[Rfam]
Background
The family of this 72-nucleotide RNA from Pteropus vampyrus is "Small nucleolar RNA SNORD113/SNORD114 family". The family's RNA type in Rfam is C/D-box small nucleolar RNA. The imprinted human domain at 14q32 contains two clusters of tandemly repeated small nucleolar RNAs named 14q(I) and 14q(II) snoRNAs.
RNA sequence: UGGACCAGUGAUGAUGACUGGUGGCAGAUGAGUCAUGGAUGUUGAAUACAUGUCUGGAACUCUGGGGUCCAA
Numbered sequence: 001u002g003g004a005c006c007a008g009u010g011a012u013g014a015u016g017a018c019u020g021g022u023g024g025c026a027g028a029u030g031a032g033u034c035a036u037g038g039a040u041g042u043u044g045a046a047u048a049c050a051u052g053u054c055u056g057g058a059a060c061u062c063u064g065g066g067g068u069c070c071a072a
Base pairs, nucleotide, nucleotide: 002070003069004068005067006066
Dot-bracket structure: .(((((...........................................................)))))..
A reference for the family is Cavaille et al. (2002), "Identification of tandemly-repeated C/D snoRNA genes at the imprinted human 14q32 domain reminiscent of those at the Prader-Willi/Angelman syndrome region", Hum Mol Genet. Lineage of the source: Eukaryota > Metazoa > Eutheria > Pteropodidae > Pteropus. Pairs were carried over by alignment from the consensus structure, which is taken from published work.